[Rfam]
RNA: DUF805b RNA
Organism: Flavobacteriaceae bacterium 3519-10
RNA sequence: AAAGGGGAAGCCGAAAACCUUUUUCAGAGUAGGCA
Numbered sequence: 001a002a003a004g005g006g007g008a009a010g011c012c013g014a015a016a017a018c019c020u021u022u023u024u025c026a027g028a029g030u031a032g033g034c035a
Base pairs, nucleotide, nucleotide: 002021003020004019005018010034011033012032